Shown here is a 104-nucleotide sequence from Scyliorhinus torazame, a member of the family "mir-454 microRNA precursor family".
The family has 20 seed sequences and 696 matches in Rfam 15.1.
The family's consensus secondary structure was predicted with RNAalifold.
A search with the family's covariance model found it, with a score of 66 bits.
On this family, see Chen et al., Genes Dev 2005: "The developmental miRNA profiles of zebrafish as determined by small RNA cloning".
[Rfam]
RNA sequence: CGAGGCUACCCUUGGAGCUGGGACCCUAUCUAUAUUGCGUCUGCUUUGAAUUUAUCGCUUUAAGUAGUGCAAUAUCGCUUAUAGGGUUUCAGCCCGGGGUCCAA
Numbered sequence: 001c002g003a004g005g006c007u008a009c010c011c012u013u014g015g016a017g018c019u020g021g022g023a024c025c026c027u028a029u030c031u032a033u034a035u036u037g038c039g040u041c042u043g044c045u046u047u048g049a050a051u052u053u054a055u056c057g058c059u060u061u062a063a064g065u066a067g068u069g070c071a072a073u074a075u076c077g078c079u080u081a082u083a084g085g086g087u088u089u090c091a092g093c094c095c096g097g098g099g100u101c102c103a104a
Stems, first nucleotide, its partner, number of pairs: 020090010030077001032075007041067005